This 385-nucleotide sequence from Thermaerobacter marianensis belongs to the Rfam family "Bacterial RNase P class A". The family's RNA type in Rfam is ribozyme. The base pairs follow the family's consensus structure, which is taken from published work. It scores 275 bits against the family's covariance model.
[Rfam]
RNA sequence: CGAGUCAGCCGGGUGAUCGCGGGCGCAGGGCCGCAAGGCCGCGUCCGAGGAAAGUCCGGGCUGCACAGGGCACGGUGCUGGGUAACGCCCAGCGGGGGCGACCCCCGGGAAAGUGCCACAGAAACAUACCGCCGGUGGAACCGGCGCCGCGGGGUGCCGCCGCGCGGCCGCCGGCCGCCGGUAAGGGUGAAACGGUGCGGUAAGAGCGCACCAGCGGCCAGGCGACUGGCCGGCUAGGCAAACCCCACCGGCAGCAAGGCCGAGUAGGAGGGCGAUGAGGUGGCCCGCCGAGCCCUCGGGUUGGCCGCUGGAGGCCCCGGGCAACCGGGCGCCCUAGAUAGAUGAUCACCCUCGACAGAACCCGGCUUACAGGCUGGCUCGUCCC
Numbered sequence: 001c002g003a004g005u006c007a008g009c010c011g012g013g014u015g016a017u018c019g020c021g022g023g024c025g026c027a028g029g030g031c032c033g034c035a036a037g038g039c040c041g042c043g044u045c046c047g048a049g050g051a052a053a054g055u056c057c058g059g060g061c062u063g064c065a066c067a068g069g070g071c072a073c074g075g076u077g078c079u080g081g082g083u084a085a086c087g088c089c090c091a092g093c094g095g096g097g098g099c100g101a102c103c104c105c106c107g108g109g110a111a112a113g114u115g116c117c118a119c120a121g122a123a124a125c126a127u128a129c130c131g132c133c134g135g136u137g138g139a140a141c142c143g144g145c146g147c148c149g150c151g152g153g154g155u156g157c158c159g160c161c162g163c164g165c166g167g168c169c170g171c172c173g174g175c176c177g178c179c180g181g182u183a184a185g186g187g188u189g190a191a192a193c194g195g196u197g198c199g200g201u202a203a204g205a206g207c208g209c210a211c212c213a214g215c216g217g218c219c220a221g222g223c224g225a226c227u228g229g230c231c232g233g234c235u236a237g238g239c240a241a242a243c244c245c246c247a248c249c250g251g252c253a254g255c256a257a258g259g260c261c262g263a264g265u266a267g268g269a270g271g272g273c274g275a276u277g278a279g280g281u282g283g284c285c286c287g288c289c290g291a292g293c294c295c296u297c298g299g300g301u302u303g304g305c306c307g308c309u310g311g312a313g314g315c316c317c318c319g320g321g322c323a324a325c326c327g328g329g330c331g332c333c334c335u336a337g338a339u340a341g342a343u344g345a346u347c348a349c350c351c352u353c354g355a356c357a358g359a360a361c362c363c364g365g366c367u368u369a370c371a372g373g374c375u376g377g378c379u380c381g382u383c384c385c
Stems, first nucleotide, its partner, number of pairs: 001381010011370001012350007020047007028039001052368003056365005061254004068286004073250005078092005093107001094105004108245002113243002115239003129186002131182008194212006214234001215232007258306004268297006279289003313333003316329005